[Rfam]
RNA: leuA-Halobacteria RNA
Organism: Halalkaliarchaeum desulfuricum
RNA sequence: CGGCACGGAGGAUAGACCAAGUCGCCUCACGGCGGCUGGCCGAGAAAUUCUCC
Number, nucleotide and partner (000 for none) at each position: 001c000002g000003g000004c000005a000006c000007g000008g000009a000010g000011g000012a000013u000014a000015g000016a000017c000018c000019a000020a037021g036022u035023c034024g033025c032026c031027u000028c000029a000030c000031g026032g025033c024034g023035g022036c021037u020038g000039g000040c000041c000042g000043a000044g000045a000046a000047a000048u000049u000050c000051u000052c000053c000